[Rfam]
RNA sequence: AGUAAAACCAUAUGCAUACCUCAUAUAUCCUUGAGAAUACGGCUCAAGAGUCUCUACCGGGUUGCCUUAAACAACCUGACUAUGAAGGUGGAUAUUUCUUGA
Numbered sequence: 001a002g003u004a005a006a007a008c009c010a011u012a013u014g015c016a017u018a019c020c021u022c023a024u025a026u027a028u029c030c031u032u033g034a035g036a037a038u039a040c041g042g043c044u045c046a047a048g049a050g051u052c053u054c055u056a057c058c059g060g061g062u063u064g065c066c067u068u069a070a071a072c073a074a075c076c077u078g079a080c081u082a083u084g085a086a087g088g089u090g091g092a093u094a095u096u097u098c099u100u101g102a
Stems, first nucleotide, its partner, number of pairs: 019087001021085005030048006058078007